[Rfam]
RNA: Class I RNA from Dictyostelium
Nucleotides: 055
Stems, first nucleotide, its partner, number of pairs: 001053006
Number, partner (000 for none) and nucleotide at each position: 001053g002052a003051u004050c005049u006048c007000a008000u009000u010000g011000c012000a013000g014000c015000a016000a017000u018000c019000a020000a021000a022000u023000c024000a025000a026000u027000u028000c029000u030000c031000a032000a033000u034000a035000a036000u037000g038000a039000a040000a041000a042000c043000c044000u045000c046000c047000u048006g049005a050004g051003a052002u053001c054000u055000g